[Rfam]
RNA sequence: UGAGGGGUAGAUACCUGUGCGUUAAGUGCAGUGGAAACGGAAUGUGGGCCACUGACGAAACAAUUAUGUGCGAUGCAGGUAUCGCAUUCACCA
Numbered sequence: 001u002g003a004g005g006g007g008u009a010g011a012u013a014c015c016u017g018u019g020c021g022u023u024a025a026g027u028g029c030a031g032u033g034g035a036a037a038c039g040g041a042a043u044g045u046g047g048g049c050c051a052c053u054g055a056c057g058a059a060a061c062a063a064u065u066a067u068g069u070g071c072g073a074u075g076c077a078g079g080u081a082u083c084g085c086a087u088u089c090a091c092c093a
Stems, first nucleotide, its partner, number of pairs: 004092002010083010020072003026056002029054006040089005060069003
A member of the RNA family "THF (Tetrahydrofolate) riboswitch aptamer" from Leuconostocaceae bacterium R-53105, 93 nucleotides long. Rfam links the family to the GO term tetrahydrofolate metabolic process. The organism belongs to Lactobacillaceae, within Bacteria. A search with the family's covariance model found it, with a score of 67 bits. A reference for the family is Trausch and Batey (2014), "A disconnect between high-affinity binding and efficient regulation by antifolates and purines in the tetrahydrofolate riboswitch", Chem Biol.